Overview: A member of the RNA family "Plastid-clpP 5UTR RNA" from Dendrobium nobile, 70 nucleotides long. Plastid clpP is a non-coding RNA (ncRNA) recognised in plastids. The family's consensus secondary structure was predicted with LocARNA. The family's RNA type in Rfam is cis-regulatory element.
RNA sequence: AUUUCUAUUUAUAAGAACAAUGAGAAAAAGAUCGUAUUAUAUACCCGAUAAGUAUCAAUACACAACGGGA
Numbered sequence: 001a002u003u004u005c006u007a008u009u010u011a012u013a014a015g016a017a018c019a020a021u022g023a024g025a026a027a028a029a030g031a032u033c034g035u036a037u038u039a040u041a042u043a044c045c046c047g048a049u050a051a052g053u054a055u056c057a058a059u060a061c062a063c064a065a066c067g068g069g070a
Stems, first nucleotide, its partner, number of pairs: 003022001006019001008017003044069003052061003

Background:
Taxonomically the source falls in Dendrobium (Eukaryota, Streptophytina, Tracheophyta, Euphyllophyta).